[Rfam]
RNA: Flavo-1 RNA
RNA sequence: UUGCGUUAAGGAUUGCAGCGACAUCCUUUUUUGUUUUUCUCAAAAAAGAUACAGCGAAAAGCCUGACUUUAC
Numbered sequence: 001u002u003g004c005g006u007u008a009a010g011g012a013u014u015g016c017a018g019c020g021a022c023a024u025c026c027u028u029u030u031u032u033g034u035u036u037u038u039c040u041c042a043a044a045a046a047a048g049a050u051a052c053a054g055c056g057a058a059a060a061g062c063c064u065g066a067c068u069u070u071a072c
Base pairs, nucleotide, nucleotide: 009064010063011062013060014059018055019054023050024049025048029045030044031043032042033041